The family of this 86-nucleotide sequence from Denticeps clupeoides is "mir-135 microRNA precursor family". NCBI's taxonomy places the organism under Eukaryota, Bilateria, Actinopteri, Clupeiformes, Denticeps. Gene Ontology terms of the family: gene silencing by miRNA and RISC complex. Pairs were carried over by alignment from the consensus structure, which was predicted with PFOLD. A reference for the family is Lagos-Quintana et al. (2002), "Identification of tissue-specific microRNAs from mouse", Curr Biol. A search with the family's covariance model found it, with a score of 63 bits.
RNA sequence: CUGCUGCUGUGUCUUAUGGCUUUUUAUUCCUAUGUGAUGCUGAAACUGGAUUCAUGUAGGGAUAUAAGCCACUAAACACACGGUAA
Number, nucleotide and partner (000 for none) at each position: 001c000002u085003g084004c083005u082006g081007c000008u000009g079010u078011g077012u076013c000014u074015u000016a000017u071018g070019g069020c068021u067022u066023u000024u000025u000026a063027u062028u061029c060030c059031u058032a057033u056034g055035u054036g053037a052038u000039g000040c000041u000042g000043a000044a000045a000046c000047u000048g000049g000050a000051u000052u037053c036054a035055u034056g033057u032058a031059g030060g029061g028062a027063u026064a000065u000066a022067a021068g020069c019070c018071a017072c000073u000074a014075a000076a012077c011078a010079c009080a000081c006082g005083g004084u003085a002086a000